[Rfam]
A member of the RNA family "Small nucleolar RNA SNORD53/SNORD92" from Struthio camelus, 78 nucleotides long. The source organism's lineage runs through Eukaryota, Chordata, Sauropsida, Sauria and Struthio camelus. The base pairs follow the family's consensus structure. Clan: SNORD52 clan. The family's RNA type in Rfam is C/D-box small nucleolar RNA.
RNA sequence: UUGCUGUGAUGAUACCCACUUGGUUUCGCUUGCUACUGAUACGCAGUGCGGACAGCUUCCACUUGGCUGUCUGAGCAG
Dot-bracket structure: ((((......................................................................))))